[Rfam]
RNA: Small nucleolar RNA SNORD113/SNORD114 family
RNA sequence: UAGACCAAUGAUGAGUAUUCUGGGGUGUCUGAAUCAAUGAUUUUGAUUAAACCCUGUAACUCUGAGGUCCAU
Numbered sequence: 001u002a003g004a005c006c007a008a009u010g011a012u013g014a015g016u017a018u019u020c021u022g023g024g025g026u027g028u029c030u031g032a033a034u035c036a037a038u039g040a041u042u043u044u045g046a047u048u049a050a051a052c053c054c055u056g057u058a059a060c061u062c063u064g065a066g067g068u069c070c071a072u
Stems, first nucleotide, its partner, number of pairs: 003069004